RNA sequence: AUACCUUAAAUGUAUGAGUAAGGAAAACAAUGAUUUGGGGGUGACGCCCGAAUCCUUACUACUAAUGUAAGAUGAAUUUUUGAGCGGAUAAGGAUCGCCCCUAAGGUGACCCGCCUACUUUGCGGGAUGCUUGGGAGUUGUGAUCUGCCCA
Numbered sequence: 001a002u003a004c005c006u007u008a009a010a011u012g013u014a015u016g017a018g019u020a021a022g023g024a025a026a027a028c029a030a031u032g033a034u035u036u037g038g039g040g041g042u043g044a045c046g047c048c049c050g051a052a053u054c055c056u057u058a059c060u061a062c063u064a065a066u067g068u069a070a071g072a073u074g075a076a077u078u079u080u081u082g083a084g085c086g087g088a089u090a091a092g093g094a095u096c097g098c099c100c101c102u103a104a105g106g107u108g109a110c111c112c113g114c115c116u117a118c119u120u121u122g123c124g125g126g127a128u129g130c131u132u133g134g135g136a137g138u139u140g141u142g143a144u145c146u147g148c149c150c151a
Base pairs, nucleotide, nucleotide: 004023005022006021007020008019032054033053034052035051036050037049038048039047055071056070057069058068059067086150087149089147092146093145094144095143096142097141098140101135102134104132105131106130107129108128110126111125112124113123114122
The family of this 151-nucleotide sequence from Carlito syrichta is "U12 minor spliceosomal RNA".
The family's RNA type in Rfam is spliceosomal small nuclear RNA.
The match comes from Rfam's covariance-model search (122 bits).
For this family Rfam cites "Pre-mRNA splicing: the discovery of a new spliceosome doubles the challenge" (Tarn and Steitz, Trends Biochem Sci, 1997).
The family has 62 seed sequences and 2,106 matches in Rfam 15.1.
Its family is annotated with mRNA branch site recognition, pre-mRNA branch point binding and U12 snRNP in the Gene Ontology.
NCBI's taxonomy places the organism under Eukaryota, Deuterostomia, Chordata, Gnathostomata, Carlito.